RNA sequence: AUUAAUGAAGAAGUCGAGGACAACUGAUUAAUGAUGAGUCUUCUCUACUCUGAUG
Numbered sequence: 001a002u003u004a005a006u007g008a009a010g011a012a013g014u015c016g017a018g019g020a021c022a023a024c025u026g027a028u029u030a031a032u033g034a035u036g037a038g039u040c041u042u043c044u045c046u047a048c049u050c051u052g053a054u055g
Stems, first nucleotide, its partner, number of pairs: 006052002010048001012046002016043005021033002

Small nucleolar RNA sR45: a 55-nucleotide sequence from Nanoarchaeum equitans. Lineage of the source: Archaea > Nanobdellati > Candidatus Nanoarchaeia > Nanoarchaeum > Nanoarchaeum equitans. By type it is a C/D-box small nucleolar RNA. The family's consensus secondary structure was predicted with WAR. A search with the family's covariance model found it, with a score of 43 bits.